[Rfam]
RNA sequence: UCGAGGUAAAACAGUGAGUAGUCGACUUGGGGAACUGAUCAACCCUUGAGAUAAGUUUAAAUCUGCUUUUUUUUACUCCAUAAACUUUUACCGUGGGUAAAAAGAUUCUUGUUGGGGUAUAAAAAAAACCAAAUUUAAAUUUAGCCCAAUGGUUGGUGAUGUAUUUUCCCCAAGAAGAUUGAUUACUUUUUACCCCAA
Numbered sequence: 001u002c003g004a005g006g007u008a009a010a011a012c013a014g015u016g017a018g019u020a021g022u023c024g025a026c027u028u029g030g031g032g033a034a035c036u037g038a039u040c041a042a043c044c045c046u047u048g049a050g051a052u053a054a055g056u057u058u059a060a061a062u063c064u065g066c067u068u069u070u071u072u073u074u075a076c077u078c079c080a081u082a083a084a085c086u087u088u089u090a091c092c093g094u095g096g097g098u099a100a101a102a103a104g105a106u107u108c109u110u111g112u113u114g115g116g117g118u119a120u121a122a123a124a125a126a127a128a129c130c131a132a133a134u135u136u137a138a139a140u141u142u143a144g145c146c147c148a149a150u151g152g153u154u155g156g157u158g159a160u161g162u163a164u165u166u167u168c169c170c171c172a173a174g175a176a177g178a179u180u181g182a183u184u185a186c187u188u189u190u191u192a193c194c195c196c197a198a
Stems, first nucleotide, its partner, number of pairs: 003196001005194007013187005019181005026174009038160004042153003046149003050145001052143004057138006064131002067128007074119007085104003088100005

The family of this 198-nucleotide RNA sequence from Medicago truncatula is "MIR2670 microRNA precursor family".
The family's consensus secondary structure was predicted with RNAalifold.